[Rfam]
A member of the RNA family "sroE RNA" from Oryza sativa, 65 nucleotides long. Pairs were carried over by alignment from the consensus structure, which was predicted with PFOLD. The family's RNA type in Rfam is small RNA.
RNA sequence: AUAACGUGAUGGGAAGCGUGCCGCUUCCCAUGUAUGAUUGAACCCAUUCUUUGGGUUUUUUUUGU
Numbered sequence: 001a002u003a004a005c006g007u008g009a010u011g012g013g014a015a016g017c018g019u020g021c022c023g024c025u026u027c028c029c030a031u032g033u034a035u036g037a038u039u040g041a042a043c044c045c046a047u048u049c050u051u052u053g054g055g056u057u058u059u060u061u062u063u064g065u
Stems, first nucleotide, its partner, number of pairs: 010030009040058006
Dot-bracket structure: .........(((((((((...))))))))).........((((((.......)))))).......